[Rfam]
RNA sequence: ACGGGAUGCGUCCCGUCAAGGAAUGUGGCCCGGUCUUCCGGGCUGAACCUGAAA
Dot-bracket structure: (((((......)))))..(((.....(((((........)))))...)))....